[Rfam]
RNA sequence: CUGGAGGUGGUUGAUGACACCAAAAUUCCUGAAUUUCCGUGAUUUUGCUUCAAAGUAAACGCUCUGACACCUCCAGA
Numbered sequence: 001c002u003g004g005a006g007g008u009g010g011u012u013g014a015u016g017a018c019a020c021c022a023a024a025a026u027u028c029c030u031g032a033a034u035u036u037c038c039g040u041g042a043u044u045u046u047g048c049u050u051c052a053a054a055g056u057a058a059a060c061g062c063u064c065u066g067a068c069a070c071c072u073c074c075a076g077a
Stems, first nucleotide, its partner, number of pairs: 005072005010021001012019002029047001031045003
Shown here is a 77-nucleotide sequence from Pachyramphus minor, a member of the family "Small nucleolar RNA U105B". By type it is a C/D-box small nucleolar RNA. The organism belongs to Pachyramphus, within Eukaryota.